[Rfam]
This 112-nucleotide RNA from Virgibacillus salarius belongs to the Rfam family "TPP riboswitch aptamer (THI element)".
Its family is annotated with thiamine pyrophosphate binding in the Gene Ontology.
Lineage of the source: Bacteria > Bacillati > Bacilli > Bacillaceae > Virgibacillus.
RNA sequence: ACGCUUCACUAGGGGUGCCUUUACGUAAUGGCUGAGAUCUAUGUGUGACAUGGAGACCCUUUGAACCUGAACUGGAGUAAGAACCAGCGGAGGAAAGUGACAGGAGUAGUGU
Numbered sequence: 001a002c003g004c005u006u007c008a009c010u011a012g013g014g015g016u017g018c019c020u021u022u023a024c025g026u027a028a029u030g031g032c033u034g035a036g037a038u039c040u041a042u043g044u045g046u047g048a049c050a051u052g053g054a055g056a057c058c059c060u061u062u063g064a065a066c067c068u069g070a071a072c073u074g075g076a077g078u079a080a081g082a083a084c085c086a087g088c089g090g091a092g093g094a095a096a097g098u099g100a101c102a103g104g105a106g107u108a109g110u111g112u
Base pairs, nucleotide, nucleotide: 006100007099008098009097010096011060012059013058014057016054017032018031019030021028039053040052041051042050043049066093067092068091072087073086074085075084